[Rfam]
RNA sequence: AGUGAACAUUCAACGCUGUCGGUGAGUUUGGAAUUAAAGUGAAAACCAUCGACCGUUGAUUGUACCCU
Numbered sequence: 001a002g003u004g005a006a007c008a009u010u011c012a013a014c015g016c017u018g019u020c021g022g023u024g025a026g027u028u029u030g031g032a033a034u035u036a037a038a039g040u041g042a043a044a045a046c047c048a049u050c051g052a053c054c055g056u057u058g059a060u061u062g063u064a065c066c067c068u
Stems, first nucleotide, its partner, number of pairs: 001068001007062002010059006018053007026046004